[Rfam]
RNA: MIR2655 microRNA precursor family
Organism: Trifolium subterraneum
RNA sequence: CCCUUAUCUUUUAAAAGUUUCAAGUUGGUCCCUUAUCUUUAUUUUAGGUUUCAAGUUGGUCCAUUCCGUCAAUUUUUUAACUAUUUCCGUUAAAUUUGGACACGUGGCACACUUGGACAAAUGACACAUGUCCAAUUUUAACAGUAACAGUAAAAAAAUUGACGGAAGGGACCAAUUUGAAACCUAAAAUAAAGAUAAGGGACCAAUUUGAAACUUUUAAAAUAUAAGGGA
Numbered sequence: 001c002c003c004u005u006a007u008c009u010u011u012u013a014a015a016a017g018u019u020u021c022a023a024g025u026u027g028g029u030c031c032c033u034u035a036u037c038u039u040u041a042u043u044u045u046a047g048g049u050u051u052c053a054a055g056u057u058g059g060u061c062c063a064u065u066c067c068g069u070c071a072a073u074u075u076u077u078u079a080a081c082u083a084u085u086u087c088c089g090u091u092a093a094a095u096u097u098g099g100a101c102a103c104g105u106g107g108c109a110c111a112c113u114u115g116g117a118c119a120a121a122u123g124a125c126a127c128a129u130g131u132c133c134a135a136u137u138u139u140a141a142c143a144g145u146a147a148c149a150g151u152a153a154a155a156a157a158a159u160u161g162a163c164g165g166a167a168g169g170g171a172c173c174a175a176u177u178u179g180a181a182a183c184c185u186a187a188a189a190u191a192a193a194g195a196u197a198a199g200g201g202a203c204c205a206a207u208u209u210g211a212a213a214c215u216u217u218u219a220a221a222a223u224a225u226a227a228g229g230g231a
Stems, first nucleotide, its partner, number of pairs: 002229006023208003027204003031200013045186003